[Rfam]
RNA sequence: GUGCAUCCAGCAGGAAUUGAAUCCGCAAAUUUACCAAUUAUGAGUUGGGUGCUUUAACCAUUCAGCCGUCCAAUAGGAUUU
Numbered sequence: 001g002u003g004c005a006u007c008c009a010g011c012a013g014g015a016a017u018u019g020a021a022u023c024c025g026c027a028a029a030u031u032u033a034c035c036a037a038u039u040a041u042g043a044g045u046u047g048g049g050u051g052c053u054u055u056a057a058c059c060a061u062u063c064a065g066c067c068g069u070c071c072a073a074u075a076g077g078a079u080u081u
Stems, first nucleotide, its partner, number of pairs: 003081001005079004010026002013023002040069003044066008
The family of this 81-nucleotide RNA sequence from Triticum urartu is "Plastid-ycf2 5UTR RNA". It scores 69 bits against the family's covariance model. The family's consensus secondary structure was predicted with LocARNA. NCBI's taxonomy places the organism under Eukaryota, Magnoliopsida, commelinids, Poales, Triticum. Plastid ycf2 is a non-coding RNA (ncRNA) recognised in plastids.